Annotation:
A member of the RNA family "Mesorhizobail RNA 36" from Mesorhizobium sp. WSM3876, 93 nucleotides long. Existence predicted via genome wide comparisons with 4 related strains. Analysed further by deep sequencing and Northern blot under various stress conditions. Strong signals in response to variety of stimuli. Highly abundant in symbiotic, micro-oxygen, oxidative and salt stress conditions. It is annotated as a small RNA.
[Rfam]
RNA sequence: GCUGGGAUGGUCUAGGGUCCGGAAAAAGGCAAAGAUUCAACAAUGUACAAAGCUGUCGGAUCGCGAGGCUCACGGGUCAGCCGUGUGCUGUGG
Numbered sequence: 001g002c003u004g005g006g007a008u009g010g011u012c013u014a015g016g017g018u019c020c021g022g023a024a025a026a027a028g029g030c031a032a033a034g035a036u037u038c039a040a041c042a043a044u045g046u047a048c049a050a051a052g053c054u055g056u057c058g059g060a061u062c063g064c065g066a067g068g069c070u071c072a073c074g075g076g077u078c079a080g081c082c083g084u085g086u087g088c089u090g091u092g093g
Stems, first nucleotide, its partner, number of pairs: 002059001006057006013050001017048002020045002027037002064092002067089003071085001073083003
Dot-bracket structure: .(...((((((.(...((.((.....((.......))......)).)).).)))))).)....((.(((.(.(((.....))).).))).)).
Description: A search with the family's covariance model found it, with a score of 66 bits. On this family, see Fuli et al., Front Microbiol 2017: "A Genome-Wide Prediction and Identification of Intergenic Small RNAs by Comparative Analysis in Mesorhizobium huakuii 7653R".